Overview
A member of the RNA family "Proteo-phage-1 RNA", 79 nucleotides long.
[Rfam]
RNA sequence: CCACGGCCAGGGUGGUUCCCAAUAGGGAUGUGCCUGGACGUCCCAGCUGGCGGUGGGCGUAUGCAAAACACCAGCAGCC
Numbered sequence: 001c002c003a004c005g006g007c008c009a010g011g012g013u014g015g016u017u018c019c020c021a022a023u024a025g026g027g028a029u030g031u032g033c034c035u036g037g038a039c040g041u042c043c044c045a046g047c048u049g050g051c052g053g054u055g056g057g058c059g060u061a062u063g064c065a066a067a068a069c070a071c072c073a074g075c076a077g078c079c
Stems, first nucleotide, its partner, number of pairs: 001015004007037005018027003039059004046075005

Rfam's curators put it in the seed alignment.